[Rfam]
The record is a 75-nucleotide sequence from Rubrobacter marinus, which matches "c-di-GMP-I-GGC riboswitch aptamer" in Rfam. It scores 64 bits against the family's covariance model. The family's consensus secondary structure is taken from published work. The family is grouped with related families in Rfam's "c-di-GMP_I riboswitch clan".
RNA sequence: ACACGAAAGGGCAAACUCGCCGCGAGGCGGGGACGCAAAGCCACGGGCCUCCAGGAGGUAGCCGGGCCGCCGAAA
Numbered sequence: 001a002c003a004c005g006a007a008a009g010g011g012c013a014a015a016c017u018c019g020c021c022g023c024g025a026g027g028c029g030g031g032g033a034c035g036c037a038a039a040g041c042c043a044c045g046g047g048c049c050u051c052c053a054g055g056a057g058g059u060a061g062c063c064g065g066g067c068c069g070c071c072g073a074a075a
Stems, first nucleotide, its partner, number of pairs: 011036002016031006034061001040067003044064003047059003
Dot-bracket structure: ..........((...((((((....))))))..[))...(((.((((((.......))).]))))))........